[Rfam]
RNA sequence: UGAUUAUACAGAAGAGUGGAGAGAUCGGGCUCUGUGAAACUCUGGCAACCAACCGUCUGUCGGAUGACGGAUGACAAGGUGCCAAUACCCGGCCGGAAACGGAAUUAUAAUUG
Numbered sequence: 001u002g003a004u005u006a007u008a009c010a011g012a013a014g015a016g017u018g019g020a021g022a023g024a025u026c027g028g029g030c031u032c033u034g035u036g037a038a039a040c041u042c043u044g045g046c047a048a049c050c051a052a053c054c055g056u057c058u059g060u061c062g063g064a065u066g067a068c069g070g071a072u073g074a075c076a077a078g079g080u081g082c083c084a085a086u087a088c089c090c091g092g093c094c095g096g097a098a099a100c101g102g103a104a105u106u107a108u109a110a111u112u113g
Stems, first nucleotide, its partner, number of pairs: 001113008013043005021032003026092001028090001029088001044083004049079002053073001087105001093102003
The record is a 113-nucleotide sequence from Tangfeifania diversioriginum, which matches "SAM riboswitch aptamer (S box leader)" in Rfam. The match comes from Rfam's covariance-model search (63 bits). Gene Ontology term of the family: regulation of gene expression.